The family of this 186-nucleotide RNA sequence from Thiohalospira halophila is "6S / SsrS RNA". Lineage of the source: Bacteria > Pseudomonadati > Thiohalospiraceae > Thiohalospira > Thiohalospira halophila. Pairs were carried over by alignment from the consensus structure, which is taken from published work.
RNA sequence: UAUCCCCUGCGGUGUUCGCACACAUCCGGGAAGACCCUUGAGCCUUAACGCAGCACCAAAGGGGAACGAUAUCGUGGUGCGGUGAGCACGUCCGCCUCCGAGCGGAAAGCCUGAAGCAUCACUGAGCUCCCCGCCUUGAACCUCCGGUUCAAGGACGAAGGAUGAUGCGGCACAGGCGGGGGAUAC
Numbered sequence: 001u002a003u004c005c006c007c008u009g010c011g012g013u014g015u016u017c018g019c020a021c022a023c024a025u026c027c028g029g030g031a032a033g034a035c036c037c038u039u040g041a042g043c044c045u046u047a048a049c050g051c052a053g054c055a056c057c058a059a060a061g062g063g064g065a066a067c068g069a070u071a072u073c074g075u076g077g078u079g080c081g082g083u084g085a086g087c088a089c090g091u092c093c094g095c096c097u098c099c100g101a102g103c104g105g106a107a108a109g110c111c112u113g114a115a116g117c118a119u120c121a122c123u124g125a126g127c128u129c130c131c132c133g134c135c136u137u138g139a140a141c142c143u144c145c146g147g148u149u150c151a152a153g154g155a156c157g158a159a160g161g162a163u164g165a166u167g168c169g170g171c172a173c174a175g176g177c178g179g180g181g182g183a184u185a186c
Stems, first nucleotide, its partner, number of pairs: 002184009012173004017169003036154002039151006061132005067126001071123001074122007086110002091106005